[Rfam]
This 156-nucleotide RNA from Rotaria sordida belongs to the Rfam family "U12 minor spliceosomal RNA". NCBI's taxonomy places the organism under Eukaryota, Gnathifera, Rotifera, Philodinidae, Rotaria. Pairs were carried over by alignment from the consensus structure. Its Rfam clan is "U2 clan".

RNA sequence: GUGCCUUAAACUAAUGAGUAAGGAAAAUAACGCUAUUCAGUGGAAUAACUGAACUAGCAAAUAAUUACUCCAAUUUUUGUAUAGGGGCGACAGGUUACCCGCUUGAGUAGAUUCCACUACUUUUCGGAAUCUAUUCGUGUUGUAGCGACCUAGCCC
Numbered sequence: 001g002u003g004c005c006u007u008a009a010a011c012u013a014a015u016g017a018g019u020a021a022g023g024a025a026a027a028u029a030a031c032g033c034u035a036u037u038c039a040g041u042g043g044a045a046u047a048a049c050u051g052a053a054c055u056a057g058c059a060a061a062u063a064a065u066u067a068c069u070c071c072a073a074u075u076u077u078u079g080u081a082u083a084g085g086g087g088c089g090a091c092a093g094g095u096u097a098c099c100c101g102c103u104u105g106a107g108u109a110g111a112u113u114c115c116a117c118u119a120c121u122u123u124u125c126g127g128a129a130u131c132u133a134u135u136c137g138u139g140u141u142g143u144a145g146c147g148a149c150c151u152a153g154c155c156c
Stems, first nucleotide, its partner, number of pairs: 004023005032049001034047005051068001053066001055064001085156004092151005098145001101140002104137005112129004